[Rfam]
RNA sequence: CGCUGUGAUAUUGUCCUGUCACAGCAGUACUGGCUCGAGCUACUGCUGCCUCGGGACAUGACCACAGCU
Numbered sequence: 001c002g003c004u005g006u007g008a009u010a011u012u013g014u015c016c017u018g019u020c021a022c023a024g025c026a027g028u029a030c031u032g033g034c035u036c037g038a039g040c041u042a043c044u045g046c047u048g049c050c051u052c053g054g055g056a057c058a059u060g061a062c063c064a065c066a067g068c069u
Base pairs, nucleotide, nucleotide: 003067004066005065006064012058013057014056015055016054017053018052022048023047024046025045026044027043028042029041